This 145-nucleotide RNA from Gossypium gossypioides belongs to the Rfam family "MIR7502 microRNA precursor family".
[Rfam]
RNA sequence: UGUUAAAAUUUUUAUCUAUUUUUACUGUUAAAAACUAAUGUGGCUGACAGAGUAACUAGUUAGUUUCAUGUGACGUGCCACGUGUACCUUAUUCCAACGUACAGGAACCAAUUUUUAAUGAUAGAGAUGGAUGGAAUUUUUAACA
Numbered sequence: 001u002g003u004u005a006a007a008a009u010u011u012u013u014a015u016c017u018a019u020u021u022u023u024a025c026u027g028u029u030a031a032a033a034a035c036u037a038a039u040g041u042g043g044c045u046g047a048c049a050g051a052g053u054a055a056c057u058a059g060u061u062a063g064u065u066u067c068a069u070g071u072g073a074c075g076u077g078c079c080a081c082g083u084g085u086a087c088c089u090u091a092u093u094c095c096a097a098c099g100u101a102c103a104g105g106a107a108c109c110a111a112u113u114u115u116u117a118a119u120g121a122u123a124g125a126g127a128u129g130g131a132u133g134g135a136a137u138u139u140u141u142a143a144c145a
Stems, first nucleotide, its partner, number of pairs: 002144007010136007018128007026120001028118006
Dot-bracket structure: .(((((((.(((((((.(((((((.(.((((((...............................................................................)))))).).))))))).))))))).))))))).